About this RNA:
Shown here is a 126-nucleotide RNA sequence from Phyllostomus discolor, a member of the family "U4atac minor spliceosomal RNA". It is annotated as a spliceosomal small nuclear RNA. Its family is annotated with spliceosomal tri-snRNP complex assembly, mRNA 5'-splice site recognition and U4atac snRNP in the Gene Ontology. The literature on the family includes a 2005 paper in RNA by Lorkovic et al., "Evolutionary conservation of minor U12-type spliceosome between plants and humans". The source organism's lineage runs through Eukaryota, Bilateria, Gnathostomata, Tetrapoda and Phyllostomus. Its Rfam clan is "U4 clan". Pairs were carried over by alignment from the consensus structure, which is taken from published work. Rfam's curators write: U4atac is an essential component of the minor U12-type spliceosome complex which is required for removal of the rarer class of eukaryotic introns (AT-AC, U12-type). It scores 68 bits against the family's covariance model.
RNA sequence: ACCAUCUUUUCCUUGGGGUUGUACUACUAUCCUCUGAGCAUGUAGUGAGAGCAGUACAGCUAGUGCCUAAACAGCACACUCCCAUCAACUAGAGCUCUGCUUUAUUUUGGUGUAGUUUUAGGAAAA
Number, nucleotide and partner (000 for none) at each position: 001a000002c000003c000004a000005u000006c018007u017008u016009u015010u000011c000012c000013u000014u000015g009016g008017g007018g006019u000020u000021g060022u059023a000024c000025u000026a055027c054028u053029a000030u051031c000032c049033u000034c000035u000036g000037a000038g046039c045040a000041u000042g000043u000044a000045g039046u038047g000048a000049g032050a000051g030052c000053a028054g027055u026056a000057c000058a000059g022060c021061u000062a000063g000064u000065g000066c000067c000068u000069a000070a000071a000072c000073a000074g000075c000076a000077c000078a000079c000080u000081c000082c000083c112084a111085u110086c109087a108088a000089c000090u104091a103092g102093a101094g100095c099096u000097c000098u000099g095100c094101u093102u092103u091104a090105u000106u000107u000108u087109g086110g085111u084112g083113u000114a000115g000116u000117u000118u000119u000120a000121g000122g000123a000124a000125a000126a000